[Rfam]
RNA sequence: AACCCCACUUUAGUACCUUCCAUUCAGUCUAAAUGAAUGGAGGGCUAUGCUAAUGGGGAAAAGAAACACUGUCAUGGUCUGAAGGUGUGGCUAGCUGACUGUGCGCCCCGCUAAAUAAAAUGACAGAACACGUGAAA
Numbered sequence: 001a002a003c004c005c006c007a008c009u010u011u012a013g014u015a016c017c018u019u020c021c022a023u024u025c026a027g028u029c030u031a032a033a034u035g036a037a038u039g040g041a042g043g044g045c046u047a048u049g050c051u052a053a054u055g056g057g058g059a060a061a062a063g064a065a066a067c068a069c070u071g072u073c074a075u076g077g078u079c080u081g082a083a084g085g086u087g088u089g090g091c092u093a094g095c096u097g098a099c100u101g102u103g104c105g106c107c108c109c110g111c112u113a114a115a116u117a118a119a120a121u122g123a124c125a126g127a128a129c130a131c132g133u134g135a136a137a
Stems, first nucleotide, its partner, number of pairs: 004057004016044004071124004089112003
RNA: Small nucleolar RNA SNORA29
Organism: Kryptolebias marmoratus